[Rfam]
RNA sequence: AAAAAAGCAGGAUGCUGUGCACUCUGCUAGCAGUAUCCCCGUAAACUUUAGGAAUAUCAUUUUCAUCGUUAUUGGGUGAACCGGUGGUCAUGUCUAUGUGUUGGACAUUCUAUGACAAUUGGUUCAGUAAAUGAUGGCACAUUU
Numbered sequence: 001a002a003a004a005a006a007g008c009a010g011g012a013u014g015c016u017g018u019g020c021a022c023u024c025u026g027c028u029a030g031c032a033g034u035a036u037c038c039c040c041g042u043a044a045a046c047u048u049u050a051g052g053a054a055u056a057u058c059a060u061u062u063u064c065a066u067c068g069u070u071a072u073u074g075g076g077u078g079a080a081c082c083g084g085u086g087g088u089c090a091u092g093u094c095u096a097u098g099u100g101u102u103g104g105a106c107a108u109u110c111u112a113u114g115a116c117a118a119u120u121g122g123u124u125c126a127g128u129a130a131a132u133g134a135u136g137g138c139a140c141a142u143u144u
Stems, first nucleotide, its partner, number of pairs: 005048003011037002014034004063137008077126009
RNA: Small nucleolar RNA snoR74